[Rfam]
RNA sequence: UGCCUCCUGGUACUUACCACAGGCUGUGUUUUUGCAUUCACUGUAUAGAAAAAGGAGGCAAAGUAAAUCUACCCCAUAUACACCUCAGACUAGGCCCUGUGCCUGGUCUGAAUUGUGAAUGAUGAGACAUGG
Numbered sequence: 001u002g003c004c005u006c007c008u009g010g011u012a013c014u015u016a017c018c019a020c021a022g023g024c025u026g027u028g029u030u031u032u033u034g035c036a037u038u039c040a041c042u043g044u045a046u047a048g049a050a051a052a053a054g055g056a057g058g059c060a061a062a063g064u065a066a067a068u069c070u071a072c073c074c075c076a077u078a079u080a081c082a083c084c085u086c087a088g089a090c091u092a093g094g095c096c097c098u099g100u101g102c103c104u105g106g107u108c109u110g111a112a113u114u115g116u117g118a119a120u121g122a123u124g125a126g127a128c129a130u131g132g
Stems, first nucleotide, its partner, number of pairs: 002059007020043003026037004072124001075121003086110003090106006
RNA: Small nucleolar RNA SNORA51
Organism: Castor canadensis